[Rfam]
RNA: drz-agam-2-2 ribozyme
Organism: Anopheles stephensi
RNA sequence: AGCAAUACUGCACUGGUAAGGUAUAGAUCCGAAGCCUCUUGAAGGUUAAUAAAGGCCCUCCACACUUCACUUCAACUCAAUACGUCCCCGGCGUACAAUACGGUAACAUGCCUAUCCAAAUGUUUGAGCUCGGGUAUAAGGGGAAACCCAUCACCCCGUGAGAAGAUGGAUGAUAUGGCUAAAUUGAGCGGA
Numbered sequence: 001a002g003c004a005a006u007a008c009u010g011c012a013c014u015g016g017u018a019a020g021g022u023a024u025a026g027a028u029c030c031g032a033a034g035c036c037u038c039u040u041g042a043a044g045g046u047u048a049a050u051a052a053a054g055g056c057c058c059u060c061c062a063c064a065c066u067u068c069a070c071u072u073c074a075a076c077u078c079a080a081u082a083c084g085u086c087c088c089c090g091g092c093g094u095a096c097a098a099u100a101c102g103g104u105a106a107c108a109u110g111c112c113u114a115u116c117c118a119a120a121u122g123u124u125u126g127a128g129c130u131c132g133g134g135u136a137u138a139a140g141g142g143g144a145a146a147c148c149c150a151u152c153a154c155c156c157c158g159u160g161a162g163a164a165g166a167u168g169g170a171u172g173a174u175a176u177g178g179c180u181a182a183a184u185u186g187a188g189c190g191g192a
Base pairs, nucleotide, nucleotide: 014098016096017095020067021066022064024062026060027059029055030054071192072191073190076188077187078186079185080184081183082094083093084092086103087102107177108176109175110174112172114171115170116169117168122167123166124165125164130153132149133148134147135146155162